[Rfam]
RNA: Clostridiales-1 RNA
Organism: Oscillospiraceae bacterium Marseille-Q3528
RNA sequence: UGAUACCAGUGGACAAAGCUCUGAGACUGCGCAUGCUCGCAUGCAGGCGGGCGAAAGAGCUUGGGACACGCCCCGAUAUGAGCAUAAAAGUGAAGCGAUAGCUUCACGAUAUGCGAAUCGUGGCGAGAAUUGUGAGAGUGCGAAGCACGGAGCAAUUCGUGAGGUAUCA
Numbered sequence: 001u002g003a004u005a006c007c008a009g010u011g012g013a014c015a016a017a018g019c020u021c022u023g024a025g026a027c028u029g030c031g032c033a034u035g036c037u038c039g040c041a042u043g044c045a046g047g048c049g050g051g052c053g054a055a056a057g058a059g060c061u062u063g064g065g066a067c068a069c070g071c072c073c074c075g076a077u078a079u080g081a082g083c084a085u086a087a088a089a090g091u092g093a094a095g096c097g098a099u100a101g102c103u104u105c106a107c108g109a110u111a112u113g114c115g116a117a118u119c120g121u122g123g124c125g126a127g128a129a130u131u132g133u134g135a136g137a138g139u140g141c142g143a144a145g146c147a148c149g150g151a152g153c154a155a156u157u158c159g160u161g162a163g164g165u166a167u168c169a
Base pairs, nucleotide, nucleotide: 001169002168003167004166005165006164007163010068011067016062017061018060019059020058021057022056027050028049029048030047031044032043033042034041035040073123074122075121078118079117082114083113084112085111090107091106092105093104094103095102096101127158128157129156130155131154132153133152138148139147140146141145